[Rfam]
RNA sequence: UCUGGGGUGUGACAUAAGUGCAGUGAAGCUAUCACCUCAGA
Numbered sequence: 001u002c003u004g005g006g007g008u009g010u011g012a013c014a015u016a017a018g019u020g021c022a023g024u025g026a027a028g029c030u031a032u033c034a035c036c037u038c039a040g041a
Stems, first nucleotide, its partner, number of pairs: 001041008009032003013028001

The family of this 41-nucleotide RNA from Nomascus leucogenys is "MAT2A 3'UTR stem loop D". For this family Rfam cites "New families of human regulatory RNA structures identified by comparative analysis of vertebrate genomes" (Parker et al., Genome Res, 2011). The base pairs follow the family's consensus structure, which is taken from published work. By type it is a cis-regulatory element.